Rfam assigns this 119-nucleotide RNA sequence from Streptomyces somaliensis to the family "Actinobacteria sRNA Ms_IGR-7". The match comes from Rfam's covariance-model search (63 bits). Rfam classes the family as a small RNA. On this family, see Li et al., RNA 2013: "Identification of small RNAs in Mycobacterium smegmatis using heterologous Hfq".

RNA sequence: ACGAGGUGCCUUGCUGAUUGGGGCCGAUGGAAGCCUGAAGAACUCCCAUCAUCCCAGGUCAGCGGGCACCUCUUCUAUAUCCGAGGCCACCCAAACCGAUCACCACGCGGUGGAUCCAG
Numbered sequence: 001a002c003g004a005g006g007u008g009c010c011u012u013g014c015u016g017a018u019u020g021g022g023g024c025c026g027a028u029g030g031a032a033g034c035c036u037g038a039a040g041a042a043c044u045c046c047c048a049u050c051a052u053c054c055c056a057g058g059u060c061a062g063c064g065g066g067c068a069c070c071u072c073u074u075c076u077a078u079a080u081c082c083g084a085g086g087c088c089a090c091c092c093a094a095a096c097c098g099a100u101c102a103c104c105a106c107g108c109g110g111u112g113g114a115u116c117c118a119g
Base pairs, nucleotide, nucleotide: 003072004071005070006069007068008067009066010065011064015061016060017059019057021055022054023053026050027049028048030046032044033043098116099115100114103113104112105111